[Rfam]
RNA sequence: GAGAUAUGAUGAGUGGUCUGGUCUCACAUUAAAUAUGCGAGUUGGGUGUCUGCUCCAAGCCUGGUUACGACAAUUGGGCAUUCUCGUUUGACCAAUUUGAUCUU
Numbered sequence: 001g002a003g004a005u006a007u008g009a010u011g012a013g014u015g016g017u018c019u020g021g022u023c024u025c026a027c028a029u030u031a032a033a034u035a036u037g038c039g040a041g042u043u044g045g046g047u048g049u050c051u052g053c054u055c056c057a058a059g060c061c062u063g064g065u066u067a068c069g070a071c072a073a074u075u076g077g078g079c080a081u082u083c084u085c086g087u088u089u090g091a092c093c094a095a096u097u098u099g100a101u102c103u104u
Base pairs, nucleotide, nucleotide: 001104002103003102004101014094015093016092017091018090023041024040025039027037044083045082046081047080048079049078050077062076063075064074065073
The record is a 104-nucleotide RNA from Lathyrus oleraceus, which matches "Small nucleolar RNA Z279/snoR105/snoR108" in Rfam. Lineage of the source: Eukaryota > Magnoliopsida > Fabales > Fabeae > Lathyrus. Rfam describes the family as follows. This family includes the plant snoRNAs known as Z279, snoR105 and snoR108. The match comes from Rfam's covariance-model search (79 bits). The base pairs follow the family's consensus structure, which was predicted with PFOLD.